[Rfam]
RNA: Bradyrhizobiaceae sRNA BjrC80
RNA sequence: AGUAGGGAAGUGUCGCCGGCAUCAGUCGCCCCCGCCGACGGCGCUUUCCGGGGGGCGGGCCCUUUGCUCGCUCCCACAGGUCCUUUCGAUGGAACAUGCCCCCCUCUGUCGGAAGGUCUAAGGGCGGUGAGGUCCCCCAGCCUCGCCGCCCGCUUUU
Numbered sequence: 001a002g003u004a005g006g007g008a009a010g011u012g013u014c015g016c017c018g019g020c021a022u023c024a025g026u027c028g029c030c031c032c033c034g035c036c037g038a039c040g041g042c043g044c045u046u047u048c049c050g051g052g053g054g055g056c057g058g059g060c061c062c063u064u065u066g067c068u069c070g071c072u073c074c075c076a077c078a079g080g081u082c083c084u085u086u087c088g089a090u091g092g093a094a095c096a097u098g099c100c101c102c103c104c105u106c107u108g109u110c111g112g113a114a115g116g117u118c119u120a121a122g123g124g125c126g127g128u129g130a131g132g133u134c135c136c137c138c139a140g141c142c143u144c145g146c147c148g149c150c151c152g153c154u155u156u157u
Base pairs, nucleotide, nucleotide: 009045010044011043012042013041014040015039017037018036019035020034051075052074053073054072055071056070057069058068059067061066080119082116083115086112087111088110089109091107092106093105122151123150124149125148126147127146128145129144130143131142132141133140